[Rfam]
RNA sequence: UGAAUCCCACCUAGUAAAGUCUAACCAACAACUAGUACUUAGAUUUGGAGCCGAAGCAGUAAUGUUAGGUUUAAGCGUAAUCAAAGGAACAUUCAAGCCGGAAGUGUAUACUGAAGUUGUUAGCCUCGAAAGGCCGAAAAUUGGAAAGGUCGAUGGUUUUGGAGAAUCAGAAGACAACAUUGAUUACAUCGUAAAGGUGAGAUGUAAUCAACUUUCCCGGGGUUGUAAGACCU
Numbered sequence: 001u002g003a004a005u006c007c008c009a010c011c012u013a014g015u016a017a018a019g020u021c022u023a024a025c026c027a028a029c030a031a032c033u034a035g036u037a038c039u040u041a042g043a044u045u046u047g048g049a050g051c052c053g054a055a056g057c058a059g060u061a062a063u064g065u066u067a068g069g070u071u072u073a074a075g076c077g078u079a080a081u082c083a084a085a086g087g088a089a090c091a092u093u094c095a096a097g098c099c100g101g102a103a104g105u106g107u108a109u110a111c112u113g114a115a116g117u118u119g120u121u122a123g124c125c126u127c128g129a130a131a132g133g134c135c136g137a138a139a140a141u142u143g144g145a146a147a148g149g150u151c152g153a154u155g156g157u158u159u160u161g162g163a164g165a166a167u168c169a170g171a172a173g174a175c176a177a178c179a180u181u182g183a184u185u186a187c188a189u190c191g192u193a194a195a196g197g198u199g200a201g202a203u204g205u206a207a208u209c210a211a212c213u214u215u216c217c218c219g220g221g222g223u224u225g226u227a228a229g230a231c232c233u
Stems, first nucleotide, its partner, number of pairs: 011035004019029002022200001024198002038086003042082004046077002048072005054066002057064002121227001123223006143217006149175003154169004180211011
RNA: Group II catalytic intron D1-D4-6